Source information:
Shown here is a 358-nucleotide RNA from Galerina marginata, a member of the family "Nuclear RNase P". The source organism's lineage runs through Eukaryota, Fungi, Agaricomycotina, Agaricales and Galerina marginata. A search with the family's covariance model found it, with a score of 80 bits.
RNA sequence: ACAGAUGGAAAGCUGCGAGGCUCGCCCCGUACAGGAUAAUGACUUUGUUUCAUAAUCUACAUUUGCGAGCGGGCUAAGGUCUGAGCAUUCUAAUCAUUCUUGACUGAUCCUAGCAGGAUCCAGCUGUAACCAGCUGAGCAGCGUAUCAGAAAUCCGACUUGUCCCGCUUAUCCACUCGUUUUGGAGGCCCUAAGAUUGCUUUCGGGCAGGAGGGCAUGGCGGGACGUAGCCUUGGAACUCGCUGUAAUGAUUGGGUGGCCAUGUAUUUUCAUAGCCAUCCUUCAGCUCACUUCGCAGCGCAUGUUAUGGGUUCCGAAAGGGCUCACAUGCAACUCGAUUCAGACUACUCUUCGUCUGU
Numbered sequence: 001a002c003a004g005a006u007g008g009a010a011a012g013c014u015g016c017g018a019g020g021c022u023c024g025c026c027c028c029g030u031a032c033a034g035g036a037u038a039a040u041g042a043c044u045u046u047g048u049u050u051c052a053u054a055a056u057c058u059a060c061a062u063u064u065g066c067g068a069g070c071g072g073g074c075u076a077a078g079g080u081c082u083g084a085g086c087a088u089u090c091u092a093a094u095c096a097u098u099c100u101u102g103a104c105u106g107a108u109c110c111u112a113g114c115a116g117g118a119u120c121c122a123g124c125u126g127u128a129a130c131c132a133g134c135u136g137a138g139c140a141g142c143g144u145a146u147c148a149g150a151a152a153u154c155c156g157a158c159u160u161g162u163c164c165c166g167c168u169u170a171u172c173c174a175c176u177c178g179u180u181u182u183g184g185a186g187g188c189c190c191u192a193a194g195a196u197u198g199c200u201u202u203c204g205g206g207c208a209g210g211a212g213g214g215c216a217u218g219g220c221g222g223g224a225c226g227u228a229g230c231c232u233u234g235g236a237a238c239u240c241g242c243u244g245u246a247a248u249g250a251u252u253g254g255g256u257g258g259c260c261a262u263g264u265a266u267u268u269u270c271a272u273a274g275c276c277a278u279c280c281u282u283c284a285g286c287u288c289a290c291u292u293c294g295c296a297g298c299g300c301a302u303g304u305u306a307u308g309g310g311u312u313c314c315g316a317a318a319g320g321g322c323u324c325a326c327a328u329g330c331a332a333c334u335c336g337a338u339u340c341a342g343a344c345u346a347c348u349c350u351u352c353g354u355c356u357g358u
Stems, first nucleotide, its partner, number of pairs: 001358004007352003012298007020070005034050006081342005092252004106120005121136006138245006161231001163229001299330006